[Rfam]
RNA sequence: GCCUUUAUGAAAACCAUUUGAAUCAAGUAGUGCAGUGAUUCAAAUGGUUUUC
Numbered sequence: 001g002c003c004u005u006u007a008u009g010a011a012a013a014c015c016a017u018u019u020g021a022a023u024c025a026a027g028u029a030g031u032g033c034a035g036u037g038a039u040u041c042a043a044a045u046g047g048u049u050u051u052c
Stems, first nucleotide, its partner, number of pairs: 009052017